Rfam assigns this 90-nucleotide sequence from Neogobius melanostomus to the family "mir-204 microRNA precursor family".
[Rfam]
RNA sequence: AUGUGACCAAUGGAUUUCCCUUUGUCAUCCUAUGCCUGGGUUCAUACAGAAGGGGCUGGGAAGGCAAAGGGACGCCCAGUGGUCUCACAA
Numbered sequence: 001a002u003g004u005g006a007c008c009a010a011u012g013g014a015u016u017u018c019c020c021u022u023u024g025u026c027a028u029c030c031u032a033u034g035c036c037u038g039g040g041u042u043c044a045u046a047c048a049g050a051a052g053g054g055g056c057u058g059g060g061a062a063g064g065c066a067a068a069g070g071g072a073c074g075c076c077c078a079g080u081g082g083u084c085u086c087a088c089a090a
Stems, first nucleotide, its partner, number of pairs: 017072006024065002028061005034056004
Annotation
The literature on the family includes a 2008 paper in Genome Res by Murchison et al., "Conservation of small RNA pathways in platypus".